RNA: S4-Flavobacteria ribosomal protein leader
RNA sequence: GGCUAUCGAAGGAAGUGACCUUAAUUCAUAGCUC
Numbered sequence: 001g002g003c004u005a006u007c008g009a010a011g012g013a014a015g016u017g018a019c020c021u022u023a024a025u026u027c028a029u030a031g032c033u034c
Base pairs, nucleotide, nucleotide: 001034002032003031004030005029006028008027009022010021011020012019